RAGATH-18 RNA: a 73-nucleotide RNA sequence. From the family's description: Actinobacteria, Firmicutes, Fusobacteria, Thermotogae (1 example). It is one of the family's seed sequences. The family's RNA type in Rfam is small RNA.
Nucleotides: 073
Stems, first nucleotide, its partner, number of pairs: 001071005009060005022055003030048003034045002
Number, partner (000 for none) and nucleotide at each position: 001071a002070c003069u004068g005067u006000g007000g008000a009060g010059u011058g012057u013056a014000c015000c016000a017000g018000a019000a020000c021000u022055u023054g024053u025000g026000a027000g028000u029000a030048g031047a032046u033000a034045c035044a036000g037000c038000u039000c040000c041000g042000g043000c044035u045034g046032g047031u048030c049000a050000a051000a052000a053024g054023c055022a056013u057012a058011c059010a060009c061000g062000u063000u064000u065000a066000a067005a068004c069003a070002g071001u072000a073000a